[Rfam]
RNA sequence: AAAAAAGCAAUACCGCCCUCUUGUUCUAUCAAGAGGGCGGUAUUGCUUUUUUUAU
Numbered sequence: 001a002a003a004a005a006a007g008c009a010a011u012a013c014c015g016c017c018c019u020c021u022u023g024u025u026c027u028a029u030c031a032a033g034a035g036g037g038c039g040g041u042a043u044u045g046c047u048u049u050u051u052u053u054a055u
Base pairs, nucleotide, nucleotide: 001052002051003050004049005048006047007046008045009044010043011042012041013040014039018035019034020033021032022031023030
A member of the RNA family "Plastid-psbA-3 3UTR RNA" from Angelica sinensis, 55 nucleotides long. About the family: Plastid psbA-3 is a non-coding RNA (ncRNA) present in plastids. It was identified in inverted repeat sequences in the 3 prime untranslate region (3UTR) of photosystem II quinone-binding protein (psbA). The literature on the family includes a 2023 paper in Plant Commun by Richter et al., "Retrograde signaling in plants: A critical review focusing on the GUN pathway and beyond". Rfam classes the family as a cis-regulatory element. Pairs were carried over by alignment from the consensus structure, which was predicted with LocARNA. Its Rfam clan is "Plastid-psbA 3UTR RNA clan". It is one of the family's seed sequences. Lineage of the source: Eukaryota > Streptophyta > Spermatophyta > Apioideae > Angelica.